RNA sequence: GAUCCGAUAGUAUGAUAGAAAGAAAUAUAUAAACCUUUCUACCACACUAUCUAUUAUUGUUGUAUAAAGUUGUACUU
Numbered sequence: 001g002a003u004c005c006g007a008u009a010g011u012a013u014g015a016u017a018g019a020a021a022g023a024a025a026u027a028u029a030u031a032a033a034c035c036u037u038u039c040u041a042c043c044a045c046a047c048u049a050u051c052u053a054u055u056a057u058u059g060u061u062g063u064a065u066a067a068a069g070u071u072g073u074a075c076u077u
Stems, first nucleotide, its partner, number of pairs: 006051006013044002016041007023028001
RNA: Plastid-psbM 3UTR RNA
Organism: Tetracentron sinense